[Rfam]
This 45-nucleotide RNA from Metabacillus harenarius belongs to the Rfam family "PreQ1 (pre queuosine) riboswitch aptamer".
Rfam links the family to the GO term queuosine biosynthetic process.
A search with the family's covariance model found it, with a score of 40 bits.
Rfam's curators write: This family is a bacterial riboswitch that binds to the metabolite preQ1, an intermediate in the biosynthesis of the modified nucleoside queuosine from GTP. One example of this riboswitch is located in the leader of the Bacillus subtilis ykvJKLM (queCDEF) operon which encodes four genes necessary for queuosine production. PreQ1 binding to the riboswitch aptamer is thought to induce premature transcription termination within the leader to down-regulate expression of these genes.
Taxonomically the source falls in Metabacillus (Bacteria, Bacillati, Bacillota, Caryophanales).
RNA sequence: ACGGGAGAGGUUCUAGCACAACCCUCUAUAAAAAACUAUGAUAUC
Numbered sequence: 001a002c003g004g005g006a007g008a009g010g011u012u013c014u015a016g017c018a019c020a021a022c023c024c025u026c027u028a029u030a031a032a033a034a035a036c037u038a039u040g041a042u043a044u045c
Base pairs, nucleotide, nucleotide: 006027007026008025009024010023016037